The family of this 144-nucleotide sequence from Heyndrickxia shackletonii is "c-di-AMP riboswitch aptamer (ydaO/yuaA leader)". Taxonomically the source falls in Heyndrickxia (Bacteria, Bacillati, Bacilli, Caryophanales).
RNA sequence: CAUCGAAUAACGCUUAAUCCAAUUGGAGCGGGGGACCCAUACUUGUGAAUUGAUUGUUCACUUGGGGUGAAUCCUUUAUAAGGUAGGGCUAUUCUCUCAUGUCCGAAUCCGACAGCUAACCUCGUAAGCGUAUAGAGAGGAAUG
Numbered sequence: 001c002a003u004c005g006a007a008u009a010a011c012g013c014u015u016a017a018u019c020c021a022a023u024u025g026g027a028g029c030g031g032g033g034g035a036c037c038c039a040u041a042c043u044u045g046u047g048a049a050u051u052g053a054u055u056g057u058u059c060a061c062u063u064g065g066g067g068u069g070a071a072u073c074c075u076u077u078a079u080a081a082g083g084u085a086g087g088g089c090u091a092u093u094c095u096c097u098c099a100u101g102u103c104c105g106a107a108u109c110c111g112a113c114a115g116c117u118a119a120c121c122u123c124g125u126a127a128g129c130g131u132a133u134a135g136a137g138a139g140g141a142a143u144g
Stems, first nucleotide, its partner, number of pairs: 011130004018027003028125006038064002065110003073083004086104004